Rfam assigns this 392-nucleotide RNA sequence from Chitinophaga tropicalis to the family "Bacterial RNase P class A". About the family: Ribonuclease P (RNase P) is a ubiquitous endoribonuclease, found in archaea, bacteria and eukarya as well as chloroplasts and mitochondria. Lineage of the source: Bacteria > Pseudomonadati > Chitinophagia > Chitinophagaceae > Chitinophaga.
[Rfam]
RNA sequence: ACUACAAACUGUGCUAUCGCCUGUUUUCGCCUUAAAACGAAAACAUGAGGAAAGUCCGGACAGCACAGAGUAACGCACCACCUAACGGGUGGGGCUUGUUCUUUGAGAAAGGAACGGGCACAGAUAGUGCCACAGAAAAUGACCGCCCCGGAACUGCUCCGGUAGUUUAGGGUAAGGGUGAAAAUGUGGGGUAAGAGCCCACGUCGUGGUAUGGCAACAUAUCAGGAGGGUAAACCUUGCGUGCUGAAAUGCCAUGUAUACGGUCGAUCGAGGGCUGCUCGUCCAAUGACCGAGGGUAGGCAGAUACAGGUGCCGCGUGAGCGGUAUCGCAGAUAAAUGAUAGCGUCUUUCUUCGGAAAGAACAGAAUCCGGCUUAUAGGUUUGUAGUUUCU
Dot-bracket structure: ((((((((((((((((((.(.(((((((..........))))))).)....[[[.[[[[[((((...[[[[.((((((((((.....)))))((((((((((((....))))))))))).)((...(((((...........((((((.(((.............))).))))..)).......((((((.......)))))).(.(((((((....))))))).)..)))..)))))))))))))...((((.......(((((......((((.]]]]))))...)))))......))))......((((((((....))))))))..........)))))))......................]]]]]]]].).))))))))))....
Numbered sequence: 001a002c003u004a005c006a007a008a009c010u011g012u013g014c015u016a017u018c019g020c021c022u023g024u025u026u027u028c029g030c031c032u033u034a035a036a037a038c039g040a041a042a043a044c045a046u047g048a049g050g051a052a053a054g055u056c057c058g059g060a061c062a063g064c065a066c067a068g069a070g071u072a073a074c075g076c077a078c079c080a081c082c083u084a085a086c087g088g089g090u091g092g093g094g095c096u097u098g099u100u101c102u103u104u105g106a107g108a109a110a111g112g113a114a115c116g117g118g119c120a121c122a123g124a125u126a127g128u129g130c131c132a133c134a135g136a137a138a139a140u141g142a143c144c145g146c147c148c149c150g151g152a153a154c155u156g157c158u159c160c161g162g163u164a165g166u167u168u169a170g171g172g173u174a175a176g177g178g179u180g181a182a183a184a185u186g187u188g189g190g191g192u193a194a195g196a197g198c199c200c201a202c203g204u205c206g207u208g209g210u211a212u213g214g215c216a217a218c219a220u221a222u223c224a225g226g227a228g229g230g231u232a233a234a235c236c237u238u239g240c241g242u243g244c245u246g247a248a249a250u251g252c253c254a255u256g257u258a259u260a261c262g263g264u265c266g267a268u269c270g271a272g273g274g275c276u277g278c279u280c281g282u283c284c285a286a287u288g289a290c291c292g293a294g295g296g297u298a299g300g301c302a303g304a305u306a307c308a309g310g311u312g313c314c315g316c317g318u319g320a321g322c323g324g325u326a327u328c329g330c331a332g333a334u335a336a337a338u339g340a341u342a343g344c345g346u347c348u349u350u351c352u353u354c355g356g357a358a359a360g361a362a363c364a365g366a367a368u369c370c371g372g373c374u375u376a377u378a379g380g381u382u383u384g385u386a387g388u389u390u391c392u
Stems, first nucleotide, its partner, number of pairs: 001388010011377001012345007020047001022045007052375003056372005061246004068280004073242005078092005093121001094119011122237002127235002129231003143177002145173004150168003185203006205226001207224007250302004261292005272284004309328008